[Rfam]
The family of this 107-nucleotide RNA sequence from Brevibacterium luteolum is "ALIL pseudoknot". The base pairs follow the family's consensus structure, which is taken from published work. By type it is a cis-regulatory element. A reference for the family is Mazauric et al. (2008), "Apical loop-internal loop RNA pseudoknots: a new type of stimulator of -1 translational frameshifting in bacteria", J Biol Chem. A search with the family's covariance model found it, with a score of 82 bits.
RNA sequence: AGCAUCGCGGAGCUCGACCGCCCCUCCCGGUGAUGUGCGCGUUCAUCGACGCGCACCGGGACGAGCACGGGGUCGAGCCGAUCUGCAGGAUCUUGCAGAUCGCCCCG
Numbered sequence: 001a002g003c004a005u006c007g008c009g010g011a012g013c014u015c016g017a018c019c020g021c022c023c024c025u026c027c028c029g030g031u032g033a034u035g036u037g038c039g040c041g042u043u044c045a046u047c048g049a050c051g052c053g054c055a056c057c058g059g060g061a062c063g064a065g066c067a068c069g070g071g072g073u074c075g076a077g078c079c080g081a082u083c084u085g086c087a088g089g090a091u092c093u094u095g096c097a098g099a100u101c102g103c104c105c106c107g
Stems, first nucleotide, its partner, number of pairs: 007021004068107005079102002082099007